[Rfam]
RNA sequence: AUUAUUAUAACGCUGAAUCUCAAAGGAGAACGGGGGAACCAUUUUUGGGGUGAAUCCGAUUUAUCGGUAGGGCUAUCCCUUAGCCCGAAUCCGUCAGCUAACCUCGUAAGCGGGAAAGGGAACCAGG
Numbered sequence: 001a002u003u004a005u006u007a008u009a010a011c012g013c014u015g016a017a018u019c020u021c022a023a024a025g026g027a028g029a030a031c032g033g034g035g036g037a038a039c040c041a042u043u044u045u046u047g048g049g050g051u052g053a054a055u056c057c058g059a060u061u062u063a064u065c066g067g068u069a070g071g072g073c074u075a076u077c078c079c080u081u082a083g084c085c086c087g088a089a090u091c092c093g094u095c096a097g098c099u100a101a102c103c104u105c106g107u108a109a110g111c112g113g114g115a116a117a118g119g120g121a122a123c124c125a126g127g
Stems, first nucleotide, its partner, number of pairs: 011112004018029003030107006040047002048092003056067004070086004

The record is a 127-nucleotide RNA from Syntrophomonas zehnderi, which matches "c-di-AMP riboswitch aptamer (ydaO/yuaA leader)" in Rfam. Taxonomically the source falls in Syntrophomonas zehnderi (Bacteria, Bacillati, Bacillota, Syntrophomonas).